The family of this 143-nucleotide sequence is "RT-3 RNA". The sequence is in the family's curated seed alignment.
RNA sequence: AAUCGGCGUACAGCAAAGGGGAUGUGUCCCCAACGUGGUGCCGAGAGGAAUGAGCUUCAGCAACAGCGGCUAUAUGCCGGAACGCUGAAAAAACAAGUGAUGGGUAGAGUUUGGUAGGUUUUUUCUCGAAGAACUCGGACCCA
Numbered sequence: 001a002a003u004c005g006g007c008g009u010a011c012a013g014c015a016a017a018g019g020g021g022a023u024g025u026g027u028c029c030c031c032a033a034c035g036u037g038g039u040g041c042c043g044a045g046a047g048g049a050a051u052g053a054g055c056u057u058c059a060g061c062a063a064c065a066g067c068g069g070c071u072a073u074a075u076g077c078c079g080g081a082a083c084g085c086u087g088a089a090a091a092a093a094c095a096a097g098u099g100a101u102g103g104g105u106a107g108a109g110u111u112u113g114g115u116a117g118g119u120u121u122u123u124u125c126u127c128g129a130a131g132a133a134c135u136c137g138g139a140c141c142c143a
Stems, first nucleotide, its partner, number of pairs: 003044006011038001013036002018031005046056002057088005067079004101143005107136006117126002